RNA sequence: AUGCAACAAGAGAGCUUAUGGGACCAAAACCAGGAGCUCUUAAUGCUGUGGCCUGAGAUUGAAGUUGUCCAUAGGAUGUAACAGACGCCCAAUAGUGCUAUGUUUUCCUGAGGAGAUAUAAGA
Numbered sequence: 001a002u003g004c005a006a007c008a009a010g011a012g013a014g015c016u017u018a019u020g021g022g023a024c025c026a027a028a029a030c031c032a033g034g035a036g037c038u039c040u041u042a043a044u045g046c047u048g049u050g051g052c053c054u055g056a057g058a059u060u061g062a063a064g065u066u067g068u069c070c071a072u073a074g075g076a077u078g079u080a081a082c083a084g085a086c087g088c089c090c091a092a093u094a095g096u097g098c099u100a101u102g103u104u105u106u107c108c109u110g111a112g113g114a115g116a117u118a119u120a121a122g123a
Base pairs, nucleotide, nucleotide: 001049002048010041011040012039013038014037015036016035017034019033022031066116068114069113070112073109074108075107076106081101083099084098086097087096088095
Dot-bracket structure: ((.......((((((((.(..(........).)))))))))......))................(.(((..((((....(.((.(((......))))).)....))))..))).).......